[Rfam]
Source information: The record is an 81-nucleotide sequence from Xenopus laevis, which matches "Small nucleolar RNA SNORD121A" in Rfam. A reference for the family is Yang et al. (2006), "snoSeeker: an advanced computational package for screening of guide and orphan snoRNA genes in the human genome", Nucleic Acids Res. Gene Ontology terms of the family: RNA processing and nucleolus. The match comes from Rfam's covariance-model search (57 bits).
Nucleotides: 081
Base pairs, nucleotide, nucleotide: 002080004078005077006076008074009073010072011071
Number, partner (000 for none) and nucleotide at each position: 001000g002080u003000u004078g005077g006076a007000g008074a009073g010072a011071c012000a013000a014000u015000g016000a017000u018000g019000u020000g021000a022000g023000a024000a025000u026000u027000c028000c029000a030000a031000g032000c033000a034000c035000a036000u037000a038000u039000c040000u041000g042000a043000a044000c045000u046000u047000u048000g049000u050000g051000u052000u053000g054000a055000a056000a057000a058000c059000a060000c061000u062000u063000g064000u065000c066000a067000c068000u069000g070000a071011g072010u073009c074008u075000u076006u077005c078004c079000u080002g081000g